[Rfam]
The family of this 308-nucleotide sequence from Nothobranchius furzeri is "7SK RNA". Pairs were carried over by alignment from the consensus structure, which is taken from published work. The organism belongs to Nothobranchius, within Eukaryota.

RNA sequence: GGAUGUGAGGGCGAUCUGGCUGCGACAUCUGUCACCCCACUGAUCGCUAGGGUUGAUUUGGCUGAUGUAGCUGGCUAGGCGGGUGUCCCCUUCCUCCCUCACUGCUCCACAUGAGCGCCUCCCGAAGCUCCGCGCUCGGUGGCAGCGGACGACCCCUGGACGACCAUCCUUCGGUGACCGGUAGCUGCGCUCUCCUGCUAGAAACUCCAAACAAGCUCAAGGCCAAAAGGAGAAACGUAGGGAAGUCAAGCUCCAAGCUUCAGAUUAUUAGUAUCAUUAUUGUCAUUAUUGUCAUUAUUAUUGUCAUU
Numbered sequence: 001g002g003a004u005g006u007g008a009g010g011g012c013g014a015u016c017u018g019g020c021u022g023c024g025a026c027a028u029c030u031g032u033c034a035c036c037c038c039a040c041u042g043a044u045c046g047c048u049a050g051g052g053u054u055g056a057u058u059u060g061g062c063u064g065a066u067g068u069a070g071c072u073g074g075c076u077a078g079g080c081g082g083g084u085g086u087c088c089c090c091u092u093c094c095u096c097c098c099u100c101a102c103u104g105c106u107c108c109a110c111a112u113g114a115g116c117g118c119c120u121c122c123c124g125a126a127g128c129u130c131c132g133c134g135c136u137c138g139g140u141g142g143c144a145g146c147g148g149a150c151g152a153c154c155c156c157u158g159g160a161c162g163a164c165c166a167u168c169c170u171u172c173g174g175u176g177a178c179c180g181g182u183a184g185c186u187g188c189g190c191u192c193u194c195c196u197g198c199u200a201g202a203a204a205c206u207c208c209a210a211a212c213a214a215g216c217u218c219a220a221g222g223c224c225a226a227a228a229g230g231a232g233a234a235a236c237g238u239a240g241g242g243a244a245g246u247c248a249a250g251c252u253c254c255a256a257g258c259u260u261c262a263g264a265u266u267a268u269u270a271g272u273a274u275c276a277u278u279a280u281u282g283u284c285a286u287u288a289u290u291g292u293c294a295u296u297a298u299u300a301u302u303g304u305c306a307u308u
Stems, first nucleotide, its partner, number of pairs: 001108003005102007013093002018090002024087010035074002037070001039068001043066003046062003116162002120160002122139004127135002140158003147154002184251003190245002193242006205232004270308003274303001276301002279296001281294002

About the family: 7SK was discovered as an abundant small nuclear RNA in the mid-70s but a possible function has only recently been suggested. Two independent studies have found that 7SK RNA binds the CDK9/cyclin T complex (known as elongation factor P-TEFb). P-TEFb activates transcription by phosphorylating the C-terminal domain of RNA polymerase II. This process is negatively regulated by the 7SK RNP. The secondary structure of 7SK RNA shown here was proposed by Wasserman and Steitz on the basis of chemical modification and enzymatic cleavage experiments.
Rfam 15.1 lists 49,373 matches to the family in 668 species.
The family's RNA type in Rfam is non-coding RNA gene.